[Rfam]
RNA: traJ-II RNA
RNA sequence: UGGCAGGAUGUGUGUUGUACCGGUACGCGCUGACGCACGCACCGGCCCACCACCGGCCUUACUCGCCUGCGGCUCGACGGAAUCCUGCUCUGCGAGGCU
Numbered sequence: 001u002g003g004c005a006g007g008a009u010g011u012g013u014g015u016u017g018u019a020c021c022g023g024u025a026c027g028c029g030c031u032g033a034c035g036c037a038c039g040c041a042c043c044g045g046c047c048c049a050c051c052a053c054c055g056g057c058c059u060u061a062c063u064c065g066c067c068u069g070c071g072g073c074u075c076g077a078c079g080g081a082a083u084c085c086u087g088c089u090c091u092g093c094g095a096g097g098c099u
Stems, first nucleotide, its partner, number of pairs: 002089008012053003016049002020045002026039002029036002057080002065073003